The family of this 91-nucleotide RNA from Hydrocarboniclastica marina is "t44 RNA". It scores 73 bits against the family's covariance model. On this family, see Tjaden et al., Nucleic Acids Res 2002: "Transcriptome analysis of Escherichia coli using high-density oligonucleotide probe arrays". About the family: This family consists of a number of bacterial RNA genes of between 135 and 170 bases in length. The t44 gene has been identified in several species of enteric bacteria but homologs have also been identified in Pseudomonas and Coxiella species. The family's consensus secondary structure was predicted with LocARNA. Rfam classes the family as a small RNA.
RNA sequence: AAUUGCACCAGCUAAUCUCACACACACAUCGACACAUUUAGCCUGGGUGCCCGCACGACGGGUUGGCUUAUGGGAUGUGUGGAGGCCUAAC
Number, nucleotide and partner (000 for none) at each position: 001a000002a000003u000004u000005g000006c000007a000008c000009c000010a000011g000012c000013u000014a000015a000016u000017c000018u000019c000020a000021c000022a000023c081024a080025c079026a078027c077028a076029u075030c074031g000032a000033c000034a000035c072036a071037u070038u000039u000040a068041g067042c066043c065044u000045g000046g000047g000048u000049g063050c062051c061052c060053g059054c000055a000056c000057g000058a000059c053060g052061g051062g050063u049064u000065g043066g042067c041068u040069u000070a037071u036072g035073g000074g030075a029076u028077g027078u026079g025080u024081g023082g000083a000084g000085g000086c000087c000088u000089a000090a000091c000